[Rfam]
RNA sequence: UCUUUGUAUGUAAGAAUUGGAGGAAAUUAAACCCAAUGCCAGAAACUAUUAAACAACUUUAUUGUUGGGUUUAAUUUCCUCCAAUAUCUUACCUCCAGUAU
Numbered sequence: 001u002c003u004u005u006g007u008a009u010g011u012a013a014g015a016a017u018u019g020g021a022g023g024a025a026a027u028u029a030a031a032c033c034c035a036a037u038g039c040c041a042g043a044a045a046c047u048a049u050u051a052a053a054c055a056a057c058u059u060u061a062u063u064g065u066u067g068g069g070u071u072u073a074a075u076u077u078c079c080u081c082c083a084a085u086a087u088c089u090u091a092c093c094u095c096c097a098g099u100a101u
Stems, first nucleotide, its partner, number of pairs: 004098003008094001011091004016085006023078008032069007
Shown here is a 101-nucleotide RNA from Corchorus capsularis, a member of the family "MIR2275 microRNA precursor family". Rfam links the family to the GO terms RISC complex and miRNA-mediated post-transcriptional gene silencing.